[Rfam]
RNA sequence: AAAUCUUACCCUGUCUAGCUGCCUGUCAGUAUACUUUCGGUGACGGUAUUGGCUCGAAAGUGUAAGAGAGA
Numbered sequence: 001a002a003a004u005c006u007u008a009c010c011c012u013g014u015c016u017a018g019c020u021g022c023c024u025g026u027c028a029g030u031a032u033a034c035u036u037u038c039g040g041u042g043a044c045g046g047u048a049u050u051g052g053c054u055c056g057a058a059a060g061u062g063u064a065a066g067a068g069a070g071a
Stems, first nucleotide, its partner, number of pairs: 004067006017054003023046005
RNA: Trypanosomatid snoRNA TB11Cs4H1